[Rfam]
RNA sequence: CUGCGGACUUAGAAAACUGAGCCUUAGUGGAGAAAUCUGCUAAGUGGAAGCUCUCAAACUCAGGGAAACCUAAGUCUUUAUGGGUCAAGUGUUUAACUGGCUGAUAAAGGUAUGGCAAUCCUGAGCCAAGCCCUUUAGAAGGCGAAAGUCAGAAGGCAAAAGGCGGAAAUCAAAUUCAUCCUUUGUCCUUUCGACUUCAUACUUUUAGGGGGAAGGUGCAGAGGCCCGACGGGAGCUACCCUAACGUUAAGUCGAGGGUAAAGGGAGGGUCCAAUCCUCAAAGCCUACGUG
Numbered sequence: 001c002u003g004c005g006g007a008c009u010u011a012g013a014a015a016a017c018u019g020a021g022c023c024u025u026a027g028u029g030g031a032g033a034a035a036u037c038u039g040c041u042a043a044g045u046g047g048a049a050g051c052u053c054u055c056a057a058a059c060u061c062a063g064g065g066a067a068a069c070c071u072a073a074g075u076c077u078u079u080a081u082g083g084g085u086c087a088a089g090u091g092u093u094u095a096a097c098u099g100g101c102u103g104a105u106a107a108a109g110g111u112a113u114g115g116c117a118a119u120c121c122u123g124a125g126c127c128a129a130g131c132c133c134u135u136u137a138g139a140a141g142g143c144g145a146a147a148g149u150c151a152g153a154a155g156g157c158a159a160a161a162g163g164c165g166g167a168a169a170u171c172a173a174a175u176u177c178a179u180c181c182u183u184u185g186u187c188c189u190u191u192c193g194a195c196u197u198c199a200u201a202c203u204u205u206u207a208g209g210g211g212g213a214a215g216g217u218g219c220a221g222a223g224g225c226c227c228g229a230c231g232g233g234a235g236c237u238a239c240c241c242u243a244a245c246g247u248u249a250a251g252u253c254g255a256g257g258g259u260a261a262a263g264g265g266a267g268g269g270u271c272c273a274a275u276c277c278u279c280a281a282a283g284c285c286u287a288c289g290u291g
Stems, first nucleotide, its partner, number of pairs: 005023001008021005029037001049237005055231001060124006069115002073111001125217002131211003138205004221272001223271005239258004279291002
Shown here is a 291-nucleotide RNA sequence from Leptolyngbya ectocarpi, a member of the family "Group I catalytic intron". On this family, see Cech, Annu Rev Biochem 1990: "Self-splicing of group I introns". The match comes from Rfam's covariance-model search (75 bits).